[Rfam]
The family of this 88-nucleotide RNA from Lactuca sativa is "mir-156 microRNA precursor family". For this family Rfam cites "MicroRNAs in plants" (Reinhart et al., Genes Dev, 2002). Gene Ontology terms of the family: miRNA-mediated post-transcriptional gene silencing and RISC complex. The match comes from Rfam's covariance-model search (68 bits). Taxonomically the source falls in Lactuca (Eukaryota, Viridiplantae, Streptophytina, Asterales). This family represents the plant microRNA (miRNA) precursor mir-156.
Nucleotides: 088
Stems, first nucleotide, its partner, number of pairs: 001088007009080001010078003013074009023064003
Number, partner (000 for none) and nucleotide at each position: 001088c002087u003086g004085a005084c006083a007082g008000a009080a010078g011077a012076g013074a014073g015072u016071g017070a018069g019068c020067a021066c022000a023064c024063g025062c026000a027000g028000a029000g030000g031000c032000a033000a034000u035000u036000g037000u038000a039000u040000a041000g042000a043000g044000a045000g046000a047000c048000u049000a050000u051000a052000u053000u054000g055000g056000a057000c058000u059000u060000a061000u062025g063024c064023g065000u066021g067020u068019g069018c070017u071016c072015a073014c074013u075000u076012c077011u078010c079000u080009u081000g082007c083006u084005g085004u086003c087002a088001g